A member of the RNA family "nhaA-I RNA", 64 nucleotides long.
About the family: Acidobacteria, Alphaproteobacteria, Betaproteobacteria and Gammaproteobacteria, Verrucomicrobia, cand. division NC10.
Rfam's curators put it in the seed alignment.
It is annotated as a riboswitch.

[Rfam]
RNA sequence: GGGUGCCCGCCGCACGAGGUGGCGAUGGCAGGUGAAUGUUCAUGCGCAGGUCGGGCCGCCAGCG
Numbered sequence: 001g002g003g004u005g006c007c008c009g010c011c012g013c014a015c016g017a018g019g020u021g022g023c024g025a026u027g028g029c030a031g032g033u034g035a036a037u038g039u040u041c042a043u044g045c046g047c048a049g050g051u052c053g054g055g056c057c058g059c060c061a062g063c064g
Base pairs, nucleotide, nucleotide: 005029006028007027008024009023010022011021012020045064046063047062049060050059051058